[Rfam]
RNA sequence: CGGCGUCUGAGGGGAAGGAGCCUCUAGUACGAGAGGAACGGGGCUCCGCGGCCUCUAGUCUACCGGUUGUCUGGCAAGGCAUUGCCGGGCAGCCACGCCGUAGCCGAUAAGUGCUGAAAGCAUCUAAGCACGAAACGGCCCCUGAAACGAGACGCCGUUGAGGGCACCCCUAAAAGAGGGGUUUGAUAGAGCCCGGGUGUAAGCACCGAGCCUUCGGGCGAGGUGUUCAGCCCGUGGGUCACUAACGCCCAAAGC
Numbered sequence: 001c002g003g004c005g006u007c008u009g010a011g012g013g014g015a016a017g018g019a020g021c022c023u024c025u026a027g028u029a030c031g032a033g034a035g036g037a038a039c040g041g042g043g044c045u046c047c048g049c050g051g052c053c054u055c056u057a058g059u060c061u062a063c064c065g066g067u068u069g070u071c072u073g074g075c076a077a078g079g080c081a082u083u084g085c086c087g088g089g090c091a092g093c094c095a096c097g098c099c100g101u102a103g104c105c106g107a108u109a110a111g112u113g114c115u116g117a118a119a120g121c122a123u124c125u126a127a128g129c130a131c132g133a134a135a136c137g138g139c140c141c142c143u144g145a146a147a148c149g150a151g152a153c154g155c156c157g158u159u160g161a162g163g164g165c166a167c168c169c170c171u172a173a174a175a176g177a178g179g180g181g182u183u184u185g186a187u188a189g190a191g192c193c194c195g196g197g198u199g200u201a202a203g204c205a206c207c208g209a210g211c212c213u214u215c216g217g218g219c220g221a222g223g224u225g226u227u228c229a230g231c232c233c234g235u236g237g238g239u240c241a242c243u244a245a246c247g248c249c250c251a252a253a254g255c
Stems, first nucleotide, its partner, number of pairs: 001157008011143004017047008048101005056095001058093001063088005068081005104138003111131005162250004166182005187244003191239004195233003203226005210219001
Record summary: The family of this 255-nucleotide part of an RNA from Candidatus Aciduliprofundum boonei is "Archaeal large subunit ribosomal RNA". Rfam 15.1 lists 2,955 matches to the family in 1,139 species. On this family, see Yusupov et al., Science 2001: "Crystal structure of the ribosome at 5.5 A resolution". It is one of the family's seed sequences.